[Rfam]
RNA sequence: AAUACGCCCCGGGGGAGCUGGAACAAGGCCGGCUGAGAGUGCAUCCCAUAGAAGAUGCAGACCCUUAUUACCUGAUCUGGUUAGUACCAGCGUAGGAAGGUGGGAGCAGACCAGC
Number, nucleotide and partner (000 for none) at each position: 001a000002a000003u000004a000005c000006g000007c102008c000009c100010c099011g065012g064013g063014g062015g000016a000017g033018c032019u031020g030021g029022a000023a000024c000025a000026a000027g000028g000029c021030c020031g019032g018033c017034u000035g000036a000037g000038a000039g000040u059041g058042c057043a056044u055045c000046c000047c000048a000049u000050a000051g000052a000053a000054g000055a044056u043057g042058c041059a040060g000061a000062c014063c013064c012065u011066u000067a000068u000069u000070a000071c096072c095073u094074g093075a000076u000077c090078u089079g088080g087081u000082u000083a000084g000085u000086a000087c080088c079089a078090g077091c000092g000093u074094a073095g072096g071097a000098a000099g010100g009101u000102g007103g000104g000105a000106g000107c000108a000109g000110a000111c000112c000113a000114g000115c000
RNA: TPP riboswitch aptamer (THI element)